A member of the RNA family "PreQ1 (pre queuosine) riboswitch aptamer" from Paraclostridium benzoelyticum, 45 nucleotides long. Its family is annotated with queuosine biosynthetic process in the Gene Ontology. The source organism's lineage runs through Bacteria, Bacillati, Clostridia, Peptostreptococcaceae and Paraclostridium. Rfam's curators write: This family is a bacterial riboswitch that binds to the metabolite preQ1, an intermediate in the biosynthesis of the modified nucleoside queuosine from GTP. One example of this riboswitch is located in the leader of the Bacillus subtilis ykvJKLM (queCDEF) operon which encodes four genes necessary for queuosine production. PreQ1 binding to the riboswitch aptamer is thought to induce premature transcription termination within the leader to down-regulate expression of these genes.
Nucleotides: 045
Base pairs, nucleotide, nucleotide: 006027007026008025009024010023016037
Number, partner (000 for none) and nucleotide at each position: 001000u002000u003000g004000g005000g006027a007026c008025u009024u010023g011000u012000u013000c014000g015000a016037g017000a018000a019000c020000c021000u022000c023010c024009a025008a026007g027006u028000a029000u030000a031000a032000a033000a034000a035000a036000c037016u038000a039000a040000g041000g042000u043000a044000a045000u